[Rfam]
The family of this 114-nucleotide RNA from Liparis tanakae is "Potassium channel RNA editing signal". From the family's description: This family represents a group of sequences related to the human potassium channel Kv1.1 hairpin element which directs the efficient modification of an adenosine to inosine by an adenosine deaminase acting on RNA (ADAR). The ADAR modification causes an isoleucine/valine recoding event which lies in the ion-conducting pore of the potassium channel.
RNA sequence: GUUGGAUAUGGAGACAUGUAUCCCACCACCAUCGGGGGGAAAUUCGUUGGAUCUUUGUGUGCCAUCGCCGGAGUGCUAACCAUAGCUUUACCUGUCCCUGUCAUAGUGUCCAAC
Numbered sequence: 001g002u003u004g005g006a007u008a009u010g011g012a013g014a015c016a017u018g019u020a021u022c023c024c025a026c027c028a029c030c031a032u033c034g035g036g037g038g039g040a041a042a043u044u045c046g047u048u049g050g051a052u053c054u055u056u057g058u059g060u061g062c063c064a065u066c067g068c069c070g071g072a073g074u075g076c077u078a079a080c081c082a083u084a085g086c087u088u089u090a091c092c093u094g095u096c097c098c099u100g101u102c103a104u105a106g107u108g109u110c111c112a113a114c
Stems, first nucleotide, its partner, number of pairs: 001114002004111002007108003011104001013102004018097001020095002037077002040074001049063002
NCBI's taxonomy places the organism under Eukaryota, Opisthokonta, Vertebrata, Percomorphaceae, Liparis. The family's consensus secondary structure is taken from published work.